[Rfam]
Rfam assigns this 130-nucleotide sequence from Microbulbifer rhizosphaerae to the family "Group II catalytic intron D1-D4-7". A reference for the family is Bonen and Vogel (2001), "The ins and outs of group II introns", Trends Genet.

RNA sequence: CCUGGUGUUCUACCACCAGUAUCCUACCCACCAUGCGAAACGGAUUUGGUAUGAAGCGCUGGGGACAAUGAACCCUGUUAAGAGGAACCGUGAGGGGAAUCGGAACUGCCAGUGUCAGGCGGUCGGGGGC
Numbered sequence: 001c002c003u004g005g006u007g008u009u010c011u012a013c014c015a016c017c018a019g020u021a022u023c024c025u026a027c028c029c030a031c032c033a034u035g036c037g038a039a040a041c042g043g044a045u046u047u048g049g050u051a052u053g054a055a056g057c058g059c060u061g062g063g064g065a066c067a068a069u070g071a072a073c074c075c076u077g078u079u080a081a082g083a084g085g086a087a088c089c090g091u092g093a094g095g096g097g098a099a100u101c102g103g104a105a106c107u108g109c110c111a112g113u114g115u116c117a118g119g120c121g122g123u124c125g126g127g128g129g130c
Base pairs, nucleotide, nucleotide: 002019003018004017005016006015007014028062029061030060031058032053033052034051035050036049038047039046040045075082076081084101088095089094105123106122107121108120109119110118
Dot-bracket structure: .((((((......))))))........(((((((((.(((....))).)))))....).)))............((....)).(...((....)).....)...((((((.......)))))).......

Group II introns are found in rRNA, tRNA and mRNA of organelles in fungi, plants and protists, and also in mRNA in bacteria. The pairing is the family consensus, mapped onto this sequence.